[Rfam]
The family of this 124-nucleotide RNA from Brassica carinata is "MIR9563 microRNA precursor family". A search with the family's covariance model found it, with a score of 90 bits. The source organism's lineage runs through Eukaryota, Streptophyta, Tracheophyta, eudicotyledons and Brassica. Rfam 15.1 lists 5,832 matches to the family in 9 species. The family's consensus secondary structure was predicted with RNAalifold.
Nucleotides: 124
Stems, first nucleotide, its partner, number of pairs: 001124009011114018030095009041085001043083005
Number, partner (000 for none) and nucleotide at each position: 001124g002123g003122a004121a005120u006119a007118u008117a009116a010000a011114a012113a013112a014111c015110u016109g017108u018107u019106u020105c021104u022103u023102a024101a025100u026099u027098u028097u029000c030095a031094a032093u033092u034091a035090a036089a037088a038087a039000a040000a041085c042000g043083a044082a045081g046080a047079a048000c049000c050000g051000a052000u053000u054000c055000u056000u057000a058000a059000a060000u061000a062000c063000u064000u065000u066000a067000u068000u069000u070000a071000a072000g073000a074000a075000u076000c077000a078000g079047u080046u081045u082044u083043u084000a085041g086000c087038u088037u089036u090035u091034u092033a093032g094031u095030u096000a097028a098027a099026a100025g101024u102023u103022a104021g105020g106019a107018a108017a109016c110015a111014g112013u113012u114011u115000c116009u117008u118007a119006u120005a121004u122003u123002c124001c